[Rfam]
Shown here is a 205-nucleotide sequence from Clostridium senegalense, a member of the family "raiA RNA".
By type it is a riboswitch.
It is one of the family's seed sequences.
RNA sequence: GUAAGUUGGGUUUGUGGUUGAAAAUCGAUGCCAGUCGCAGGCAAAACGAUCCACGUAAGUUAAACAAAGUUUUAAUGAUCAUGGUGCGGCUUAGAAGUAAGUCCUGCCGCUAUAAAGCGAGAGAGUUAGUAGUGAGAAGUUAACUCUGGGUAGCGAAAUCUCCAGCAGGCGAGUGUGGGGGCAAAGACCAGGUCAGCCAAUUUAU
Numbered sequence: 001g002u003a004a005g006u007u008g009g010g011u012u013u014g015u016g017g018u019u020g021a022a023a024a025u026c027g028a029u030g031c032c033a034g035u036c037g038c039a040g041g042c043a044a045a046a047c048g049a050u051c052c053a054c055g056u057a058a059g060u061u062a063a064a065c066a067a068a069g070u071u072u073u074a075a076u077g078a079u080c081a082u083g084g085u086g087c088g089g090c091u092u093a094g095a096a097g098u099a100a101g102u103c104c105u106g107c108c109g110c111u112a113u114a115a116a117g118c119g120a121g122a123g124a125g126u127u128a129g130u131a132g133u134g135a136g137a138a139g140u141u142a143a144c145u146c147u148g149g150g151u152a153g154c155g156a157a158a159u160c161u162c163c164a165g166c167a168g169g170c171g172a173g174u175g176u177g178g179g180g181g182c183a184a185a186g187a188c189c190a191g192g193u194c195a196g197c198c199a200a201u202u203u204a205u
Base pairs, nucleotide, nucleotide: 001205002204003203004202005201006200007199008198009197012196013195014194015190016189017188018187019186028176029175030174031041033091034090035089036088037087038086039085050084051083055079058076060074062072063071082183103169104168105167106166107165108119109118110117111116123162124161125160132154133153138147139146